STnc490 Hfq binding RNA: a 113-nucleotide sequence from Clostridium sp. MSTE9. The family has 76 seed sequences and 285 matches in Rfam 15.1.
[Rfam]
RNA sequence: AACCACCGGCUGUGCCGGUGGAGCGGAAAAAGCUUUAGCGUUGAGAGGGACAAAAAAACUCCUUUUGAUGUAAAAUAAGCUUGCGGUCUGGCAACUGCAAGAGACAUCAAAAG
Numbered sequence: 001a002a003c004c005a006c007c008g009g010c011u012g013u014g015c016c017g018g019u020g021g022a023g024c025g026g027a028a029a030a031a032g033c034u035u036u037a038g039c040g041u042u043g044a045g046a047g048g049g050a051c052a053a054a055a056a057a058a059c060u061c062c063u064u065u066u067g068a069u070g071u072a073a074a075a076u077a078a079g080c081u082u083g084c085g086g087u088c089u090g091g092c093a094a095c096u097g098c099a100a101g102a103g104a105c106a107u108c109a110a111a112a113g
Base pairs, nucleotide, nucleotide: 003021004020005019006018007017008016009015010014029042030041032039033038062113063112064111065110066109067108068107069106070105080101081100082099083098084097085096086095087094